[Rfam]
Nucleotides: 079
Base pairs, nucleotide, nucleotide: 001079002078003077004076005075
Number, partner (000 for none) and nucleotide at each position: 001079a002078g003077c004076a005075a006000a007000a008000u009000g010000a011000u012000g013000a014000g015000g016000u017000g018000a019000u020000u021000a022000u023000a024000u025000c026000u027000g028000a029000a030000u031000a032000u033000g034000a035000u036000g037000u038000u039000g040000a041000a042000c043000c044000c045000c046000a047000u048000a049000u050000c051000a052000u053000u054000c055000u056000g057000g058000u059000c060000u061000u062000c063000a064000a065000a066000g067000u068000u069000c070000u071000c072000u073000g074000a075005u076004u077003g078002c079001u
The family of this 79-nucleotide sequence from Carpinus fangiana is "Small nucleolar RNA R160".
The family's RNA type in Rfam is C/D-box small nucleolar RNA.
Taxonomically the source falls in Carpinus (Eukaryota, Euphyllophyta, Magnoliopsida, Mesangiospermae).
About the family: snoR160 is a C/D box small nucleolar RNA, which acts as a methylation guide for 25S ribosomal RNA in plants. snoR160 has been alternatively named snoZ270 in rice.
Rfam links the family to the GO terms nucleolus and RNA processing.
The base pairs follow the family's consensus structure.